Background:
Shown here is a 30-nucleotide RNA, a member of the family "L19-Flavobacteria ribosomal protein leader". For this family Rfam cites "Discovery of 20 novel ribosomal leader candidates in bacteria and archaea" (Eckert and Weinberg, BMC Microbiol, 2020). The base pairs follow the family's consensus structure, which is taken from published work. The sequence is in the family's curated seed alignment.
RNA sequence: UAACCUCUGACGAAUAAAUCGUGAACGUUG
Numbered sequence: 001u002a003a004c005c006u007c008u009g010a011c012g013a014a015u016a017a018a019u020c021g022u023g024a025a026c027g028u029u030g
Stems, first nucleotide, its partner, number of pairs: 001030004008025001010022004